[Rfam]
RNA sequence: GAGCGAUAAAGGCAAACCCUGAGUGAUCAGGGGGCGCAAAGUAACAGGGUCUUUUGAAUCUUUUCCUGAAGAAGAGAAAAGAGAAGAAACAGCCUUACUGCCGAA
Numbered sequence: 001g002a003g004c005g006a007u008a009a010a011g012g013c014a015a016a017c018c019c020u021g022a023g024u025g026a027u028c029a030g031g032g033g034g035c036g037c038a039a040a041g042u043a044a045c046a047g048g049g050u051c052u053u054u055u056g057a058a059u060c061u062u063u064u065c066c067u068g069a070a071g072a073a074g075a076g077a078a079a080a081g082a083g084a085a086g087a088a089a090c091a092g093c094c095u096u097a098c099u100g101c102c103g104a105a
Stems, first nucleotide, its partner, number of pairs: 012037002017032006040099004046095003049090002
Dot-bracket structure: ...........((...((((((....))))))...))..((((..(((((......................................))..)))))))......
RNA: c-di-GMP-I riboswitch aptamer
Organism: Candidatus Brocadia fulgida